[Rfam]
RNA sequence: GAUGAAUGAAAGGCAGAAACGAAAUAUUGUCCGUUUCGGCUUUAUAAGAGAAACAAAA
Numbered sequence: 001g002a003u004g005a006a007u008g009a010a011a012g013g014c015a016g017a018a019a020c021g022a023a024a025u026a027u028u029g030u031c032c033g034u035u036u037c038g039g040c041u042u043u044a045u046a047a048g049a050g051a052a053a054c055a056a057a058a
Stems, first nucleotide, its partner, number of pairs: 008045001012041003016037006
Description: The record is a 58-nucleotide RNA from Enterococcus thailandicus, which matches "Lacto-rpoB RNA" in Rfam. A search with the family's covariance model found it, with a score of 41 bits.